Notes
A member of the RNA family "Small nucleolar RNA SNORA32" from Otolemur garnettii, 126 nucleotides long. The family's RNA type in Rfam is H/ACA-box small nucleolar RNA. The match comes from Rfam's covariance-model search (91 bits).

RNA sequence: UGGUCAUGACCAAGGCUUUUAGAAAGCAAUUUCUCAAUUGCUGUGUAUAUGACCCUAAAAAAAGACUUUCCGAUAGGUUUUCUAUCUUCUAAGACUUUGUUGGUACUCAGCCUCCUGGUGACAUUU
Number, nucleotide and partner (000 for none) at each position: 001u000002g000003g053004u052005c051006a050007u049008g000009a000010c000011c045012a044013a000014g000015g000016c000017u000018u000019u000020u000021a000022g000023a000024a000025a000026g041027c040028a039029a038030u000031u000032u000033c000034u000035c000036a000037a000038u029039u028040g027041c026042u000043g000044u012045g011046u000047a000048u000049a007050u006051g005052a004053c003054c000055c000056u000057a000058a000059a000060a000061a000062a000063a000064g000065a000066c000067u000068u000069u000070c118071c117072g116073a000074u000075a000076g112077g111078u110079u109080u000081u000082c000083u000084a000085u000086c000087u105088u000089c103090u000091a000092a000093g000094a000095c000096u000097u000098u000099g000100u000101u000102g000103g089104u000105a087106c000107u000108c000109a079110g078111c077112c076113u000114c000115c000116u072117g071118g070119u000120g000121a000122c000123a000124u000125u000126u000